[Rfam]
RNA sequence: AUAGCUCUGUCUCGACUGAAUCCUGACGCAAUGCGUCAGAGACUUAUUAGGUCGGACGGGGCUUU
Numbered sequence: 001a002u003a004g005c006u007c008u009g010u011c012u013c014g015a016c017u018g019a020a021u022c023c024u025g026a027c028g029c030a031a032u033g034c035g036u037c038a039g040a041g042a043c044u045u046a047u048u049a050g051g052u053c054g055g056a057c058g059g060g061g062c063u064u065u
Stems, first nucleotide, its partner, number of pairs: 001065001003063010014053004021041001023039007
A member of the RNA family "DUF3800-VIII RNA", 65 nucleotides long. Rfam classes the family as a small RNA. Rfam's curators write: Bacteroidetes, Cyanobacteria, Firmicutes, Planctomycetes (1 example), Proteobacteria, Tenericutes (1 example). It is one of the family's seed sequences.